[Rfam]
The family of this 78-nucleotide RNA sequence from Castor canadensis is "Small nucleolar RNA U2-19". Taxonomically the source falls in Castor (Eukaryota, Bilateria, Tetrapoda, Amniota). A reference for the family is Tycowski et al. (2004), "Guide RNAs with 5' Caps and Novel Box C/D snoRNA-like Domains for Modification of snRNAs in Metazoa", Curr Biol.

RNA sequence: GAUCAAUGAUGAAAAUAGCCAAUCUGAUAUCAGAAGACCUCACAGUCUGCCUGAACACAUGAUCUCUAGAGUUUGAGA
Numbered sequence: 001g002a003u004c005a006a007u008g009a010u011g012a013a014a015a016u017a018g019c020c021a022a023u024c025u026g027a028u029a030u031c032a033g034a035a036g037a038c039c040u041c042a043c044a045g046u047c048u049g050c051c052u053g054a055a056c057a058c059a060u061g062a063u064c065u066c067u068a069g070a071g072u073u074u075g076a077g078a
Stems, first nucleotide, its partner, number of pairs: 028057001030054002035048004
Notes:
It scores 64 bits against the family's covariance model. Rfam classes the family as a C/D-box small nucleolar RNA. Rfam links the family to the GO terms nucleolus and RNA processing.